[Rfam]
RNA sequence: CGCCAAUGCCCUCCUUGGGCGUUUCCUCCCUAGACUUGGGCCGCCUGUUUCAGGCGGCUCUUUUUUUCGCGCCGC
Numbered sequence: 001c002g003c004c005a006a007u008g009c010c011c012u013c014c015u016u017g018g019g020c021g022u023u024u025c026c027u028c029c030c031u032a033g034a035c036u037u038g039g040g041c042c043g044c045c046u047g048u049u050u051c052a053g054g055c056g057g058c059u060c061u062u063u064u065u066u067u068c069g070c071g072c073c074g075c
Stems, first nucleotide, its partner, number of pairs: 008020004038060009
Makes More Granules Regulator RNA (mmgR): a 75-nucleotide RNA sequence from Methylovirgula sp. 4M-Z18. From the family's description: SuhB later renamed mmgR (makes more granules regulator) was a putative non-coding RNA found multiple times in the Agrobacterium tumefaciens genome and related alpha-proteobacteria. Other non-coding RNAs uncovered in the same analysis include: speF, ybhL, metA, and serC.Several studies inSinorhizobium meliloti showed that suhB element is indeed a non-coding RNA:firstly it was detected on Northern blot and called Sm8RNA, secondly in an RNAseq study referred to as SmelC689.The mutant phenotype's (strain lacking the small RNA) cytoplasm contains higher content of polyhydroxybutyrate (PBH)storage granules than wild type strain. The sRNA is required to limit the PBH intracellular accumulation when the nitrogen-fixing Sinorhizobium meliloti is under condition of surplus carbon in relation to nitrogen. It has been renamed to mmgR. Further study confirmed that mmgR fine-tunes the regulation of PBH storage.Northern blot confirmed the expression of the sRNA in other rhizobia species.